[Rfam]
RNA sequence: UGUCGGAUCCCAUGCGGCGUCCAUCUCGUGAACCUCCCCAGGGCCGGAAGGCAGCAAGGAUAAGCGAGCUCUGACGGGUGCGUGGGAUCCCUUUUUU
Numbered sequence: 001u002g003u004c005g006g007a008u009c010c011c012a013u014g015c016g017g018c019g020u021c022c023a024u025c026u027c028g029u030g031a032a033c034c035u036c037c038c039c040a041g042g043g044c045c046g047g048a049a050g051g052c053a054g055c056a057a058g059g060a061u062a063a064g065c066g067a068g069c070u071c072u073g074a075c076g077g078g079u080g081c082g083u084g085g086g087a088u089c090c091c092u093u094u095u096u097u
Base pairs, nucleotide, nucleotide: 005090006089007088008087009086010085011084012083013082014081015078018076019075020074021073025068026067027066028065029064035060036059037058043052044051045050

The record is a 97-nucleotide sequence from Actinophytocola oryzae, which matches "Bacterial small signal recognition particle RNA" in Rfam. Rfam classes the family as a non-coding RNA gene. The source organism's lineage runs through Bacteria, Bacillati, Actinomycetes, Pseudonocardiaceae and Actinophytocola. A search with the family's covariance model found it, with a score of 70 bits.